[Rfam]
RNA sequence: AUAUCUAGAUCCAAUCUUUGAGAAUUAUAAUUCAUUGGCUUCUGGGAGUCUGGCAAGAUAUACAGAAAUCUCCCUCUCAGUAUAGGAGGGCUGUCCUAUACUGAAUAGGGCUGGCUUUCAAAGAUGACAAU
Number, nucleotide and partner (000 for none) at each position: 001a000002u060003a059004u058005c057006u056007a000008g054009a000010u053011c052012c000013a000014a000015u000016c000017u000018u000019u000020g000021a000022g000023a000024a049025u048026u047027a000028u000029a000030a000031u000032u000033c045034a000035u000036u000037g000038g000039c000040u000041u000042c000043u000044g000045g033046g000047a026048g025049u024050c000051u000052g011053g010054c008055a000056a006057g005058a004059u003060a002061u000062a000063c000064a000065g000066a000067a000068a000069u000070c000071u000072c000073c000074c000075u000076c000077u130078c000079a000080g125081u124082a000083u122084a000085g000086g119087a118088g117089g116090g115091c114092u113093g111094u110095c109096c108097u107098a106099u000100a000101c000102u000103g000104a000105a000106u098107a097108g096109g095110g094111c093112u000113g092114g091115c090116u089117u088118u087119c086120a000121a000122a083123g000124a081125u080126g000127a000128c000129a000130a077131u000
Background: Shown here is a 131-nucleotide sequence from Neogale vison, a member of the family "Small Cajal body specific RNA 11". Rfam 15.1 lists 853 matches to the family in 557 species. About the family: scaRNAs are a specific class of small nuclear RNAs which localise to the Cajal bodies and guide the modification of RNA polymerase II transcribed spliceosomal RNAs U1, U2, U4, U5 and U12. ACA57 belongs to the H/ACA box class of guide RNAs as it has the predicted hairpin-hinge-hairpin-tail structure, conserved H/ACA-box motifs and is found associated with GAR1. Rfam links the family to the GO terms RNA processing, nucleolus and Cajal body. A search with the family's covariance model found it, with a score of 44 bits. A reference for the family is Darzacq et al. (2002), "Cajal body-specific small nuclear RNAs: a novel class of 2'-O-methylation and pseudouridylation guide RNAs", EMBO J. The family's RNA type in Rfam is small Cajal body RNA. NCBI's taxonomy places the organism under Eukaryota, Eutheria, Carnivora, Mustelinae, Neogale.